Shown here is a 61-nucleotide RNA from Gossypium mustelinum, a member of the family "Plastid-psbN 5UTR RNA". The base pairs follow the family's consensus structure, which was predicted with LocARNA. About the family: Plastid psbN is a non-coding RNA (ncRNA) recognised in plastids. It was reported as a conserved 11 stem-loop in the prime untranslated region (5UTR) of psbN genes. It has been reported that the motif is retained in a subset of mature transcripts in barley, which can suggests a possible role in transcript alternative 5 prime processing. It is annotated as a cis-regulatory element.

[Rfam]
RNA sequence: UGCGAUACCUAUCAAAGGAGCCGUUCCUUAUCUAGGGGCUACCUUACCAUAAUUUGAAUUC
Numbered sequence: 001u002g003c004g005a006u007a008c009c010u011a012u013c014a015a016a017g018g019a020g021c022c023g024u025u026c027c028u029u030a031u032c033u034a035g036g037g038g039c040u041a042c043c044u045u046a047c048c049a050u051a052a053u054u055u056g057a058a059u060u061c
Base pairs, nucleotide, nucleotide: 017045018044020042023039024038025037026036027035